[Rfam]
The record is a 141-nucleotide RNA from Xenopus tropicalis, which matches "Small nucleolar RNA SNORA64/SNORA10 family" in Rfam. The family's RNA type in Rfam is H/ACA-box small nucleolar RNA. Its family is annotated with nucleolus and RNA processing in the Gene Ontology. On this family, see Narayanan et al., EMBO J 1999: "Nucleolar localization signals of box H/ACA small nucleolar RNAs". The family is grouped with related families in Rfam's "SNORA64 clan". It scores 42 bits against the family's covariance model. This family belongs to the H/ACA class of small nucleolar RNAs (snoRNAs) which act as guides in the the modification of uridines to pseudouridines. This family includes the human snoRNAs U64 and ACA10 and mouse MBI-29. NCBI's taxonomy places the organism under Eukaryota, Craniata, Vertebrata, Pipoidea, Silurana.
RNA sequence: GUUCUCUCAGCUCUGCUCAGUUGCGCUUGUGCCGGUAGUGUAAUUGGCUUCACACGAGAGAGAGAAAGUGACUUGUUCUUUAUGCACGGCAGGGGGGCCUCCUAACGUGGUCUUCCUGUUCCUUUAUAAGGAUCUACAUGC
Numbered sequence: 001g002u003u004c005u006c007u008c009a010g011c012u013c014u015g016c017u018c019a020g021u022u023g024c025g026c027u028u029g030u031g032c033c034g035g036u037a038g039u040g041u042a043a044u045u046g047g048c049u050u051c052a053c054a055c056g057a058g059a060g061a062g063a064g065a066a067a068g069u070g071a072c073u074u075g076u077u078c079u080u081u082a083u084g085c086a087c088g089g090c091a092g093g094g095g096g097g098c099c100u101c102c103u104a105a106c107g108u109g110g111u112c113u114u115c116c117u118g119u120u121c122c123u124u125u126a127u128a129a130g131g132a133u134c135u136a137c138a139u140g141c
Base pairs, nucleotide, nucleotide: 002066003065004064005063006062007061008060011058012057013056014054015053019045020044021043022042023041024040025039026038076132077131078130079129080128082123084121091117092116093115095113096112097111098110099109